[Rfam]
Shown here is a 90-nucleotide RNA from Pelusios castaneus, a member of the family "mir-15 microRNA precursor family". Its Rfam clan is "mir-15 clan". About the family: This family represents the related mir-15a and mir-15b sequences.
RNA sequence: UCAGGUCAGGCUGUAACAGCAAAUCAAAAUAGGUGUUAGGUGUUUUGAAUCCUAACACCUAUUUUGAUUUGCUGUUACAGCCUGACCUGA
Numbered sequence: 001u002c003a004g005g006u007c008a009g010g011c012u013g014u015a016a017c018a019g020c021a022a023a024u025c026a027a028a029a030u031a032g033g034u035g036u037u038a039g040g041u042g043u044u045u046u047g048a049a050u051c052c053u054a055a056c057a058c059c060u061a062u063u064u065u066g067a068u069u070u071g072c073u074g075u076u077a078c079a080g081c082c083u084g085a086c087c088u089g090a
Stems, first nucleotide, its partner, number of pairs: 001090006013078012026065011